[Rfam]
RNA sequence: AGUUGCAAGCUUGAGGCUGUAGCAGAAGUGCUCAUGGCACAACCCUGUCAGAUUCCAACAAGUCUUCGAAUUCUGCU
Dot-bracket structure: ............[.[[.[..((((((((((.......)))].]]]....(((((......))))).....)))))))
Shown here is a 77-nucleotide RNA sequence from Alligator mississippiensis, a member of the family "Mammalian CPEB3 ribozyme".
The base pairs follow the family's consensus structure, which is taken from published work.
The mammalian CPEB3 ribozyme is a self cleaving RNA located in the second intron of the CPEB3 gene which belongs to a family of genes regulating messenger RNA polyadenylation. This ribozyme is highly conserved and found only in mammals. The CPEB3 ribozyme is structurally and biochemically related to the human hepatitis delta virus (HDV) ribozyme and the HDV ribozyme is proposed to have arisen from the human transcriptome.
Lineage of the source: Eukaryota > Metazoa > Craniata > Amniota > Alligator.